[Rfam]
RNA sequence: CUGAGGAGCGCGUCCGGGUCAAUUGCGGCCUGCAACACCCGAUCUCCCUCCCGGUGCCGCCAGAGAUGGCGGUCCCGAGCGAGGGGGAACGCGUAACCAUCAG
Numbered sequence: 001c002u003g004a005g006g007a008g009c010g011c012g013u014c015c016g017g018g019u020c021a022a023u024u025g026c027g028g029c030c031u032g033c034a035a036c037a038c039c040c041g042a043u044c045u046c047c048c049u050c051c052c053g054g055u056g057c058c059g060c061c062a063g064a065g066a067u068g069g070c071g072g073u074c075c076c077g078a079g080c081g082a083g084g085g086g087g088a089a090c091g092c093g094u095a096a097c098c099a100u101c102a103g
Stems, first nucleotide, its partner, number of pairs: 001103004008094006015041004023035005043088008052079001
The family of this 103-nucleotide RNA from Haloglomus irregulare is "L4-Archaeoglobi ribosomal protein leades". Taxonomically the source falls in Haloglomus (Archaea, Methanobacteriati, Methanobacteriota, Halobacteria). A search with the family's covariance model found it, with a score of 69 bits. The literature on the family includes a 2020 paper in BMC Microbiol by Eckert and Weinberg, "Discovery of 20 novel ribosomal leader candidates in bacteria and archaea". The family's RNA type in Rfam is cis-regulatory leader.